Overview: Rfam assigns this 254-nucleotide RNA sequence from Pelosinus sp. UFO1 to the family "T-box leader". Uncharged tRNA acts as the effector for transcription antitermination of genes in the T-box leader family.
RNA sequence: UUAAAAGUUAUGAUGGAGAAAUAAAGAAAUACCCCUAUGUUUCAGAGAGCCGGAAAAGGUGUGAACCGGUAACAUAUGUAUUUUGUAAGUCACUCCUGAACUGCAAAGCUGAAAAUAGUAAGUAAGCUGCGCCGGAAACAGUUCCAUUGGAACGCAACCGUUAUCUUGCUAGGGUUGAUAGACCUGAUGAGAUGCAUACACCUUCGUGUGGAUGCAAUAAGGGUGGUACCGCGAGAUAACCUCUUGCCCCUUUU
Numbered sequence: 001u002u003a004a005a006a007g008u009u010a011u012g013a014u015g016g017a018g019a020a021a022u023a024a025a026g027a028a029a030u031a032c033c034c035c036u037a038u039g040u041u042u043c044a045g046a047g048a049g050c051c052g053g054a055a056a057a058g059g060u061g062u063g064a065a066c067c068g069g070u071a072a073c074a075u076a077u078g079u080a081u082u083u084u085g086u087a088a089g090u091c092a093c094u095c096c097u098g099a100a101c102u103g104c105a106a107a108g109c110u111g112a113a114a115a116u117a118g119u120a121a122g123u124a125a126g127c128u129g130c131g132c133c134g135g136a137a138a139c140a141g142u143u144c145c146a147u148u149g150g151a152a153c154g155c156a157a158c159c160g161u162u163a164u165c166u167u168g169c170u171a172g173g174g175u176u177g178a179u180a181g182a183c184c185u186g187a188u189g190a191g192a193u194g195c196a197u198a199c200a201c202c203u204u205c206g207u208g209u210g211g212a213u214g215c216a217a218u219a220a221g222g223g224u225g226g227u228a229c230c231g232c233g234a235g236a237u238a239a240c241c242u243c244u245u246g247c248c249c250c251u252u253u254u
Base pairs, nucleotide, nucleotide: 007101008100015096016095017094018093026084027083028082029081030080031079040071049070050069051068052067053066104131107128108127109126110125133160134159135158194215195214196213197212199210200209220251221250222249223248231247232246233245234244235243